[Rfam]
RNA sequence: GGCGUAUGUUGCCCAGGCGGAACUCGACCGCCCGUUCGAGCGAUGAAGGCGUUGAUCGACCGGCACCAUGAUGCCGAUGGAGUCGAGCCGAUCGGCAAGGUGUUGCGAAUCGCGCCA
Numbered sequence: 001g002g003c004g005u006a007u008g009u010u011g012c013c014c015a016g017g018c019g020g021a022a023c024u025c026g027a028c029c030g031c032c033c034g035u036u037c038g039a040g041c042g043a044u045g046a047a048g049g050c051g052u053u054g055a056u057c058g059a060c061c062g063g064c065a066c067c068a069u070g071a072u073g074c075c076g077a078u079g080g081a082g083u084c085g086a087g088c089c090g091a092u093c094g095g096c097a098a099g100g101u102g103u104u105g106c107g108a109a110u111c112g113c114g115c116c117a
Stems, first nucleotide, its partner, number of pairs: 016032005078117003082113001089112002092109001095106004
Dot-bracket structure: ...............(((((.......))))).............................................(((.(......((.(..((((....))))..).))).)))
Record summary
ALIL pseudoknot: a 117-nucleotide sequence from Thiocystis violascens. The family's consensus secondary structure is taken from published work. Lineage of the source: Bacteria > Pseudomonadati > Gammaproteobacteria > Thiocystis > Thiocystis violascens.